The record is a 72-nucleotide sequence, which matches "DUF3800-VIII RNA" in Rfam. Bacteroidetes, Cyanobacteria, Firmicutes, Planctomycetes (1 example), Proteobacteria, Tenericutes (1 example). It is annotated as a small RNA.

[Rfam]
RNA sequence: GAAGCCCUGUUGCUCACGAAGGCUUGAGUUCCACUCGAGUCACGCCAUUUGGCAUAGUGAGCACGGGGCUUU
Numbered sequence: 001g002a003a004g005c006c007c008u009g010u011u012g013c014u015c016a017c018g019a020a021g022g023c024u025u026g027a028g029u030u031c032c033a034c035u036c037g038a039g040u041c042a043c044g045c046c047a048u049u050u051g052g053c054a055u056a057g058u059g060a061g062c063a064c065g066g067g068g069c070u071u072u
Stems, first nucleotide, its partner, number of pairs: 001072010012062006021041009
Dot-bracket structure: ((((((((((.((((((...(((((((((...)))))))))...............))))))))))))))))